[Rfam]
RNA: mir-33 microRNA precursor family
Organism: Eumeta japonica
RNA sequence: CGGGAGUGCAUUGCAGUUGCAUUGCACUAAUUAUCAAUUUGUGCAAUAUUACUACAAAGCAACUUUCG
Numbered sequence: 001c002g003g004g005a006g007u008g009c010a011u012u013g014c015a016g017u018u019g020c021a022u023u024g025c026a027c028u029a030a031u032u033a034u035c036a037a038u039u040u041g042u043g044c045a046a047u048a049u050u051a052c053u054a055c056a057a058a059g060c061a062a063c064u065u066u067c068g
Base pairs, nucleotide, nucleotide: 001068002067003066004065006064007061008060009059011057012056013055015053016052019049021047022046023045024044025043026042027041
Dot-bracket structure: ((((.((((.(((.((..(.(((((((.............))))))).)..)).))).)))..)))))